[Rfam]
RNA: Protozoan signal recognition particle RNA
Organism: Babesia bigemina
RNA sequence: UUUGCUGUAACUCUUCUGAGGGGUGCUGGCUUGAACCCAGUGGGCUGUCAUGCUGGCGCGUCCUUGCGCUGGGCUGUCUGGCGCGGGCGGGAGUCGUCCUUGGUGGCCUUCCGUAGGGGAGGCUUCCGGGUCGUUGAAUGCGGCGUACCGCUUCAGGCUGGCAACAGAGCAGAGAUAAGCUUCAGCUUCCGCUACGCGGCAGACCGCAGCCCGCGC
Numbered sequence: 001u002u003u004g005c006u007g008u009a010a011c012u013c014u015u016c017u018g019a020g021g022g023g024u025g026c027u028g029g030c031u032u033g034a035a036c037c038c039a040g041u042g043g044g045c046u047g048u049c050a051u052g053c054u055g056g057c058g059c060g061u062c063c064u065u066g067c068g069c070u071g072g073g074c075u076g077u078c079u080g081g082c083g084c085g086g087g088c089g090g091g092a093g094u095c096g097u098c099c100u101u102g103g104u105g106g107c108c109u110u111c112c113g114u115a116g117g118g119g120a121g122g123c124u125u126c127c128g129g130g131u132c133g134u135u136g137a138a139u140g141c142g143g144c145g146u147a148c149c150g151c152u153u154c155a156g157g158c159u160g161g162c163a164a165c166a167g168a169g170c171a172g173a174g175a176u177a178a179g180c181u182u183c184a185g186c187u188u189c190c191g192c193u194a195c196g197c198g199g200c201a202g203a204c205c206g207c208a209g210c211c212c213g214c215g216c
Base pairs, nucleotide, nucleotide: 011020012019013018058216059215060214070213071212072211073210074209075208076207077206078202079201080200082198083197084196086193087192088191089190090189091188092187093186094185095133096132099130100129101128102127103126105124106123107122108121109120110119111118112117134138139184140183142181143180144179151174152173153172158167159166160165